[Rfam]
RNA sequence: UCUAGUACAUGAUGAAAUCAUAAAAUCUUAGGACACCUUAUGACACAGUACGCCAAAUGCUGUGUAUGAGAAAGAUUUUUUUUUUCCUGAUACUUGG
Numbered sequence: 001u002c003u004a005g006u007a008c009a010u011g012a013u014g015a016a017a018u019c020a021u022a023a024a025a026u027c028u029u030a031g032g033a034c035a036c037c038u039u040a041u042g043a044c045a046c047a048g049u050a051c052g053c054c055a056a057a058u059g060c061u062g063u064g065u066a067u068g069a070g071a072a073a074g075a076u077u078u079u080u081u082u083u084u085u086c087c088u089g090a091u092a093c094u095u096g097g
Base pairs, nucleotide, nucleotide: 001097002096004094005093006092007091041047042046
Rfam assigns this 97-nucleotide RNA from Capsicum baccatum to the family "Small nucleolar RNA snoR31/Z110/Z27". By type it is a C/D-box small nucleolar RNA. It scores 61 bits against the family's covariance model. The base pairs follow the family's consensus structure, which was predicted with PFOLD. Rfam describes the family as follows. This family contains several related snoRNAs including R31, Z27 and Z110. Lineage of the source: Eukaryota > Viridiplantae > Gunneridae > Pentapetalae > Capsicum. On this family, see Barneche et al., J Mol Biol 2001: "Identification of 66 box C/D snoRNAs in Arabidopsis thaliana: extensive gene duplications generated multiple isoforms predicting new ribosomal RNA 2'-O-methylation sites".